RNA: Nitrogen stress-induced RNA 1
RNA sequence: UGGUAGAUGCACCCUGGUUAAUAACCCUCGGCUCCUGGAGUUGAGGGUUUUUUGU
Numbered sequence: 001u002g003g004u005a006g007a008u009g010c011a012c013c014c015u016g017g018u019u020a021a022u023a024a025c026c027c028u029c030g031g032c033u034c035c036u037g038g039a040g041u042u043g044a045g046g047g048u049u050u051u052u053u054g055u
Stems, first nucleotide, its partner, number of pairs: 002013003025047010